[Rfam]
RNA sequence: AACUAUUACAGUCAAUGAUGAUAGGUUAUAGUUUUUAAAACAUCUGUGCUCCGAAAGGGCUUCAGUUACCAUCUUGCUCAGAUAUCAAGCGAUAUCUAAGUUGAGUUUGGUCGAUGUGGAUUGCACCGUGGCCUUUUCACCACCUUUAUAGCGGUGCUACAAUUAGGAUCAACUGAGACUG
Numbered sequence: 001a002a003c004u005a006u007u008a009c010a011g012u013c014a015a016u017g018a019u020g021a022u023a024g025g026u027u028a029u030a031g032u033u034u035u036u037a038a039a040a041c042a043u044c045u046g047u048g049c050u051c052c053g054a055a056a057g058g059g060c061u062u063c064a065g066u067u068a069c070c071a072u073c074u075u076g077c078u079c080a081g082a083u084a085u086c087a088a089g090c091g092a093u094a095u096c097u098a099a100g101u102u103g104a105g106u107u108u109g110g111u112c113g114a115u116g117u118g119g120a121u122u123g124c125a126c127c128g129u130g131g132c133c134u135u136u137u138c139a140c141c142a143c144c145u146u147u148a149u150a151g152c153g154g155u156g157c158u159a160c161a162a163u164u165a166g167g168a169u170c171a172a173c174u175g176a177g178a179c180u181g
Stems, first nucleotide, its partner, number of pairs: 009181005016139003021135001023134006029123005041116004058067003068111004073105001074103001076101003080097001082095005141156004

Record summary: Shown here is a 181-nucleotide RNA from Torulaspora globosa, a member of the family "Small nucleolar RNA snR4". The literature on the family includes a 1996 paper in Cell by Balakin et al., "The RNA world of the nucleolus: two major families of small RNAs defined by different box elements with related functions". The family's RNA type in Rfam is C/D-box small nucleolar RNA.